[Rfam]
RNA: ASpks TB sRNA
Organism: Streptomyces clavuligerus
RNA sequence: CUUGAGCGAGCCGAGCAGCAGCGGCCGGUCGGCGGGGCGUUCGCUGCCGUAGGUCGCCAGCAGUGCCUGUGCCUC
Numbered sequence: 001c002u003u004g005a006g007c008g009a010g011c012c013g014a015g016c017a018g019c020a021g022c023g024g025c026c027g028g029u030c031g032g033c034g035g036g037g038c039g040u041u042c043g044c045u046g047c048c049g050u051a052g053g054u055c056g057c058c059a060g061c062a063g064u065g066c067c068u069g070u071g072c073c074u075c
Base pairs, nucleotide, nucleotide: 015025016024032070033069038065039064044060045059046058047056049054